[Rfam]
RNA sequence: CGUUUCGAGGAGCGUUGCGACGGGAAGCUUUCCCGCCAGGCUCGAAGCGCGAAGGACGCCGCCGCCAUAGCGCCGCGUCCCGACCUGAAGCCGGGCAGCUCGCCCUGCGAUCAACGGCGCUCGCGAACC
Numbered sequence: 001c002g003u004u005u006c007g008a009g010g011a012g013c014g015u016u017g018c019g020a021c022g023g024g025a026a027g028c029u030u031u032c033c034c035g036c037c038a039g040g041c042u043c044g045a046a047g048c049g050c051g052a053a054g055g056a057c058g059c060c061g062c063c064g065c066c067a068u069a070g071c072g073c074c075g076c077g078u079c080c081c082g083a084c085c086u087g088a089a090g091c092c093g094g095g096c097a098g099c100u101c102g103c104c105c106u107g108c109g110a111u112c113a114a115c116g117g118c119g120c121u122c123g124c125g126a127a128c129c
Stems, first nucleotide, its partner, number of pairs: 002048007021035006
The family of this 129-nucleotide RNA sequence from Derxia gummosa is "SAH (S-adenosyl-L-homocysteine) riboswitch aptamer".
The match comes from Rfam's covariance-model search (55 bits).
The base pairs follow the family's consensus structure, which is taken from published work.